[Rfam]
RNA sequence: AAUUUCGGGUAAUUGCGGUUAACUUUUGUUAACUGAGGAAAGUCCAUGCUCGCACAAGCUGCGACGCUUGUAGUGUUCGUGCCUGGCGAAAAAAUAAGCUGGGGUAUUUGCUUUUGCAAAUAACGGCGGGUGAAACGACUAAGGCUUCGGCUAUGUUCGAGUAACUCUGAAAAGUGCCACAGAGACGAUCUGAUUGGGAAACUAAUUAGUUGGAACGCGGUAAACCCCUCGAGCGGGCAACCCAAACUACGGUAGGGGCGCUUCACAUAUGAAAAUGAACAAAAUGUGGGGGCAGAUAUUAUCUGGAGAUAGAUGAUUACCCAAAUUUAGAUUUUCCUGAGAAUUUAUUUUGGACAAAACAUGGCUUAUAGAA
Numbered sequence: 001a002a003u004u005u006c007g008g009g010u011a012a013u014u015g016c017g018g019u020u021a022a023c024u025u026u027u028g029u030u031a032a033c034u035g036a037g038g039a040a041a042g043u044c045c046a047u048g049c050u051c052g053c054a055c056a057a058g059c060u061g062c063g064a065c066g067c068u069u070g071u072a073g074u075g076u077u078c079g080u081g082c083c084u085g086g087c088g089a090a091a092a093a094a095u096a097a098g099c100u101g102g103g104g105u106a107u108u109u110g111c112u113u114u115u116g117c118a119a120a121u122a123a124c125g126g127c128g129g130g131u132g133a134a135a136c137g138a139c140u141a142a143g144g145c146u147u148c149g150g151c152u153a154u155g156u157u158c159g160a161g162u163a164a165c166u167c168u169g170a171a172a173a174g175u176g177c178c179a180c181a182g183a184g185a186c187g188a189u190c191u192g193a194u195u196g197g198g199a200a201a202c203u204a205a206u207u208a209g210u211u212g213g214a215a216c217g218c219g220g221u222a223a224a225c226c227c228c229u230c231g232a233g234c235g236g237g238c239a240a241c242c243c244a245a246a247c248u249a250c251g252g253u254a255g256g257g258g259c260g261c262u263u264c265a266c267a268u269a270u271g272a273a274a275a276u277g278a279a280c281a282a283a284a285u286g287u288g289g290g291g292g293c294a295g296a297u298a299u300u301a302u303c304u305g306g307a308g309a310u311a312g313a314u315g316a317u318u319a320c321c322c323a324a325a326u327u328u329a330g331a332u333u334u335u336c337c338u339g340a341g342a343a344u345u346u347a348u349u350u351u352g353g354a355c356a357a358a359a360c361a362u363g364g365c366u367u368a369u370a371g372a373a
Base pairs, nucleotide, nucleotide: 004373005372006371007369008321009320010319011318012317013316014315016035017034018033019032020031021030040367041366042365044364045363046362047361048360049237050236051235052234053233054071055070056069057068058067059066077232078231079230081228082103083102084101085100086099087098104124105122106121107120108119109118110117125227126226128167129166130165131164137157138156139155143152144151145150174225175224176221177220178219190209191208192207193206194205195204196203197202241257242256243255261291262290263289264288265287266286267285293305294304295303296302297301324351325350328347329346330345331344332343333342334341
Overview:
A member of the RNA family "Bacterial RNase P class B" from Pediococcus argentinicus, 373 nucleotides long. NCBI's taxonomy places the organism under Bacteria, Bacillati, Bacillota, Lactobacillaceae, Pediococcus. Ribonuclease P (RNase P) is a ubiquitous endoribonuclease, found in archaea, bacteria and eukarya as well as chloroplasts and mitochondria.